A member of the RNA family "mir-1324 microRNA precursor family" from Rhinopithecus roxellana, 91 nucleotides long. Pairs were carried over by alignment from the consensus structure, which was predicted with RNAalifold. Lineage of the source: Eukaryota > Eumetazoa > Bilateria > Cercopithecoidea > Rhinopithecus. Gene Ontology terms of the family: RISC complex and miRNA-mediated post-transcriptional gene silencing. A search with the family's covariance model found it, with a score of 87 bits.
[Rfam]
RNA sequence: CCUGAACAGGUACAUGCAGCCUGGCCCUGACCUCACUGGGAACCUCCUUCCUCCUGGGUACCAGAUAGAAUUCUAUGCCCUUUUCUGGAGG
Numbered sequence: 001c002c003u004g005a006a007c008a009g010g011u012a013c014a015u016g017c018a019g020c021c022u023g024g025c026c027c028u029g030a031c032c033u034c035a036c037u038g039g040g041a042a043c044c045u046c047c048u049u050c051c052u053c054c055u056g057g058g059u060a061c062c063a064g065a066u067a068g069a070a071u072u073c074u075a076u077g078c079c080c081u082u083u084u085c086u087g088g089a090g091g
Base pairs, nucleotide, nucleotide: 001091002090003089008082009081010080013077014076015075016073018071021064022063023062024061029059031057032056038052039051040050041049042048